[Rfam]
RNA sequence: CAUGCGGUGGCUAACUUAUAUCGAACAUGGUUCUUGCCUUUUACCAGAACCAUCCGGGUGUUGUCUCCAUUUUCUCUAAAACAGGUAGCGCUGUCCUUGGGCUUCGUCCUUGUCCUCCGAAC
Number, nucleotide and partner (000 for none) at each position: 001c000002a000003u000004g076005c000006g074007g000008u000009g066010g065011c000012u063013a062014a061015c060016u000017u058018a000019u000020a000021u000022c000023g000024a000025a000026c000027a053028u052029g051030g050031u049032u048033c047034u046035u000036g000037c000038c000039u000040u000041u000042u000043a000044c000045c000046a034047g033048a032049a031050c030051c029052a028053u027054c000055c000056g000057g000058g017059u000060g015061u014062u013063g012064u000065c010066u009067c000068c000069a000070u000071u000072u000073u000074c006075u000076c004077u000078a000079a000080a000081a000082c000083a000084g000085g000086u000087a000088g000089c000090g000091c000092u000093g000094u000095c000096c000097u000098u000099g000100g000101g122102c000103u121104u120105c119106g118107u000108c000109c000110u000111u000112g000113u000114c000115c000116u000117c000118c106119g105120a104121a103122c101
RNA: U5 spliceosomal RNA
Organism: Nakaseomyces glabratus